Rfam assigns this 194-nucleotide RNA from Gordonia effusa to the family "Actinobacteria sRNA Ms_IGR-5".
On this family, see Li et al., RNA 2013: "Identification of small RNAs in Mycobacterium smegmatis using heterologous Hfq".
RNA sequence: ACACACGGAAGGAGGUGGUCUGAAGUUGAUUGACAAACGGACACGUGAGGUGGUCAUCCGCUAGAGCGGUCACGCUGUAAUUCGUUUACGCGCAAGCGCUUUGGCGAAUUCCAGAUGAUCACCCGGCCCUCGCAUCACGACCCAGUCCGGUCGUAUUACUCCCGUCAACGGGAGUGGUGCGGGGGCCGUUUCAU
Numbered sequence: 001a002c003a004c005a006c007g008g009a010a011g012g013a014g015g016u017g018g019u020c021u022g023a024a025g026u027u028g029a030u031u032g033a034c035a036a037a038c039g040g041a042c043a044c045g046u047g048a049g050g051u052g053g054u055c056a057u058c059c060g061c062u063a064g065a066g067c068g069g070u071c072a073c074g075c076u077g078u079a080a081u082u083c084g085u086u087u088a089c090g091c092g093c094a095a096g097c098g099c100u101u102u103g104g105c106g107a108a109u110u111c112c113a114g115a116u117g118a119u120c121a122c123c124c125g126g127c128c129c130u131c132g133c134a135u136c137a138c139g140a141c142c143c144a145g146u147c148c149g150g151u152c153g154u155a156u157u158a159c160u161c162c163c164g165u166c167a168a169c170g171g172g173a174g175u176g177g178u179g180c181g182g183g184g185g186c187c188g189u190u191u192c193a194u
Base pairs, nucleotide, nucleotide: 014058015057016056017055018054019053059106060105061104062103063102064101065100066099067098068097073092074091124188125187126186127185128184129183130182131181132180133179134178135177136176137154138153139152140151141150142149